[Rfam]
RNA: speF leader
RNA sequence: UGCCGGCUCCUCCAAAGGCCGGGGUUACUGAGAGGCACCACUAUCCUUGCCCCAUGUGCGAUUGGGACAUUCCCGAUCAAGCCAAGGCGAACGUCAGUCUGAUCCGAGCGUAUCCCGCGUCUCCACAGCGCGGGGCGAGCGUCAUCAUUCC
Numbered sequence: 001u002g003c004c005g006g007c008u009c010c011u012c013c014a015a016a017g018g019c020c021g022g023g024g025u026u027a028c029u030g031a032g033a034g035g036c037a038c039c040a041c042u043a044u045c046c047u048u049g050c051c052c053c054a055u056g057u058g059c060g061a062u063u064g065g066g067a068c069a070u071u072c073c074c075g076a077u078c079a080a081g082c083c084a085a086g087g088c089g090a091a092c093g094u095c096a097g098u099c100u101g102a103u104c105c106g107a108g109c110g111u112a113u114c115c116c117g118c119g120u121c122u123c124c125a126c127a128g129c130g131c132g133g134g135g136c137g138a139g140c141g142u143c144a145u146c147a148u149u150c151c
Stems, first nucleotide, its partner, number of pairs: 001024001003022006034051004058131003082093001101114003105110001